Rfam assigns this 597-nucleotide part of an RNA from Araneus ventricosus to the family "Eukaryotic large subunit ribosomal RNA". Lineage of the source: Eukaryota > Bilateria > Arthropoda > Entelegynae > Araneus. The match comes from Rfam's covariance-model search (3018 bits). Its family is annotated with structural constituent of ribosome and ribosome in the Gene Ontology.
[Rfam]
RNA sequence: GAAGACCCUGUUGAGCUUGACUCUAGUCUGACUCUGUGAAGAGACAUGAAGGGUGUAGUAUAAGUGGGAGGUCUUCAUUGGCCGUCAGUGAAAUACCACUACUUUCAUCGUGUCUUUACUGAUUCGGUGAAGCGGAGGUAGGGAUUGAGUUCCCUGAUUUCUGGACUUGAAUCUCCGGUCCUCAGCCGGCCGGAGAGAUCCGCUCCGAAGACAGCGUCAGGUUGGAAGUUUGACUGGGGCGGUACAUCUGUCAAAAGGUAACGCAGGUGUCCUAAGGCGAGCUCAGCGAGGACAGAAACCUCGCGUAGAGUAAAAGGGCAAAAGCUGGCUUGAUCUUGAUUUUCAGUACGAAUACGGACCGCGAAAGCGGGGCCUAUCGAUCCUUUUGAUUUUACGAGUUUUAUGCAAGAGGUGUCAGAAAAGUUACCACAGGGAUAACUGGCUUGUGGCGGCCAAGCGUUCAUAGCGACGUCGCUUUUUGAUCCUUCGAUGUCGGCUCUUCCUAUCAUUGCGAAGCAGAAUUCGCCAAGCGUUGGAUUGUUCACCCACUAAUAGGUAACGUGAGCUGGGUUUAGACCGUCGUGAGACAGGUUAGUU
Numbered sequence: 001g002a003a004g005a006c007c008c009u010g011u012u013g014a015g016c017u018u019g020a021c022u023c024u025a026g027u028c029u030g031a032c033u034c035u036g037u038g039a040a041g042a043g044a045c046a047u048g049a050a051g052g053g054u055g056u057a058g059u060a061u062a063a064g065u066g067g068g069a070g071g072u073c074u075u076c077a078u079u080g081g082c083c084g085u086c087a088g089u090g091a092a093a094u095a096c097c098a099c100u101a102c103u104u105u106c107a108u109c110g111u112g113u114c115u116u117u118a119c120u121g122a123u124u125c126g127g128u129g130a131a132g133c134g135g136a137g138g139u140a141g142g143g144a145u146u147g148a149g150u151u152c153c154c155u156g157a158u159u160u161c162u163g164g165a166c167u168u169g170a171a172u173c174u175c176c177g178g179u180c181c182u183c184a185g186c187c188g189g190c191c192g193g194a195g196a197g198a199u200c201c202g203c204u205c206c207g208a209a210g211a212c213a214g215c216g217u218c219a220g221g222u223u224g225g226a227a228g229u230u231u232g233a234c235u236g237g238g239g240c241g242g243u244a245c246a247u248c249u250g251u252c253a254a255a256a257g258g259u260a261a262c263g264c265a266g267g268u269g270u271c272c273u274a275a276g277g278c279g280a281g282c283u284c285a286g287c288g289a290g291g292a293c294a295g296a297a298a299c300c301u302c303g304c305g306u307a308g309a310g311u312a313a314a315a316g317g318g319c320a321a322a323a324g325c326u327g328g329c330u331u332g333a334u335c336u337u338g339a340u341u342u343u344c345a346g347u348a349c350g351a352a353u354a355c356g357g358a359c360c361g362c363g364a365a366a367g368c369g370g371g372g373c374c375u376a377u378c379g380a381u382c383c384u385u386u387u388g389a390u391u392u393u394a395c396g397a398g399u400u401u402u403a404u405g406c407a408a409g410a411g412g413u414g415u416c417a418g419a420a421a422a423g424u425u426a427c428c429a430c431a432g433g434g435a436u437a438a439c440u441g442g443c444u445u446g447u448g449g450c451g452g453c454c455a456a457g458c459g460u461u462c463a464u465a466g467c468g469a470c471g472u473c474g475c476u477u478u479u480u481g482a483u484c485c486u487u488c489g490a491u492g493u494c495g496g497c498u499c500u501u502c503c504u505a506u507c508a509u510u511g512c513g514a515a516g517c518a519g520a521a522u523u524c525g526c527c528a529a530g531c532g533u534u535g536g537a538u539u540g541u542u543c544a545c546c547c548a549c550u551a552a553u554a555g556g557u558a559a560c561g562u563g564a565g566c567u568g569g570g571u572u573u574a575g576a577c578c579g580u581c582g583u584g585a586g587a588c589a590g591g592u593u594a595g596u597u
Stems, first nucleotide, its partner, number of pairs: 007433004012429002014425005020229003027221006036119007044111002046108007063100005070083004123209005133202004141154004172196009232245001233243003246268006271372002277329002280326003283309002286304006310319002334358003339353004360369003383411006391405001393403002442483001444481001446480001448476006457467002494569001495567004499561001500558001502556003507532001511526005534548003538544001575593004579588003